[Rfam]
RNA sequence: GAUUUAUAAAGAAUGAGGUGAGAGACAGGCUCUGAGACCCUCUGGCAACCAUCAGUCUAAGUGAUAUAGGUGCCAAAUCCUGAUCCCAAAUGUUCGCCAGGUUGGCGGAUGGGAGAAUAUAAAUU
Numbered sequence: 001g002a003u004u005u006a007u008a009a010a011g012a013a014u015g016a017g018g019u020g021a022g023a024g025a026c027a028g029g030c031u032c033u034g035a036g037a038c039c040c041u042c043u044g045g046c047a048a049c050c051a052u053c054a055g056u057c058u059a060a061g062u063g064a065u066a067u068a069g070g071u072g073c074c075a076a077a078u079c080c081u082g083a084u085c086c087c088a089a090a091u092g093u094u095c096g097c098c099a100g101g102u103u104g105g106c107g108g109a110u111g112g113g114a115g116a117a118u119a120u121a122a123a124u125u
Stems, first nucleotide, its partner, number of pairs: 001125008013043001015042004022032003026082004044074004049070002051065004078117001084113003088110001